[Rfam]
RNA sequence: CGGACAUUUACUUUUAUUCAGUUUCUUCUGGAGAUGAAGAUAACUAAUGGUGAAUGUCCUAGAGAAAUAUAUAUAGUAGCUUUCUGUUUAUCCUUUGCAAGUAAAAAGGGUGAAUCGUUCCACUACUGACAUUU
Numbered sequence: 001c002g003g004a005c006a007u008u009u010a011c012u013u014u015u016a017u018u019c020a021g022u023u024u025c026u027u028c029u030g031g032a033g034a035u036g037a038a039g040a041u042a043a044c045u046a047a048u049g050g051u052g053a054a055u056g057u058c059c060u061a062g063a064g065a066a067a068u069a070u071a072u073a074u075a076g077u078a079g080c081u082u083u084c085u086g087u088u089u090a091u092c093c094u095u096u097g098c099a100a101g102u103a104a105a106a107a108g109g110g111u112g113a114a115u116c117g118u119u120c121c122a123c124u125a126c127u128g129a130c131a132u133u134u
Base pairs, nucleotide, nucleotide: 002059003058004057005056006055007054008053009052010051011050020045021044022043023042024040025039026038027037028036074128075127076126077125078124079123093108094107095106096105
A member of the RNA family "Small Cajal body specific RNA 24" from Galemys pyrenaicus, 134 nucleotides long. The family's consensus secondary structure was predicted with RNAfold. Clan: SCARNA3 clan. By type it is a small Cajal body RNA. The match comes from Rfam's covariance-model search (139 bits). Rfam's curators write: scaRNAs are a specific class of small nuclear RNAs which localise to the Cajal bodies and guide the modification of RNA polymerase II transcribed spliceosomal RNAs U1, U2, U4, U5 and U12. ACA12 belongs to the H/ACA box class of guide RNAs as it has the predicted hairpin-hinge-hairpin-tail structure,the conserved H/ACA-box motifs and is found associated with GAR1.